[Rfam]
RNA sequence: UGCAGCCGUGUCAAAUUCAGUGCCUGCCCCAAUGAUGGCAAGCACUGGCCCAGAAGGCUGCCAUAGAAACUGUGACUCCUGAGCCCUGUUCCCCAUGCUUGGUUCCAGGAUAAAGCUAGUCACAGACACCA
Numbered sequence: 001u002g003c004a005g006c007c008g009u010g011u012c013a014a015a016u017u018c019a020g021u022g023c024c025u026g027c028c029c030c031a032a033u034g035a036u037g038g039c040a041a042g043c044a045c046u047g048g049c050c051c052a053g054a055a056g057g058c059u060g061c062c063a064u065a066g067a068a069a070c071u072g073u074g075a076c077u078c079c080u081g082a083g084c085c086c087u088g089u090u091c092c093c094c095a096u097g098c099u100u101g102g103u104u105c106c107a108g109g110a111u112a113a114a115g116c117u118a119g120u121c122a123c124a125g126a127c128a129c130c131a
Stems, first nucleotide, its partner, number of pairs: 002061004018047006025040004072123006084109002088105001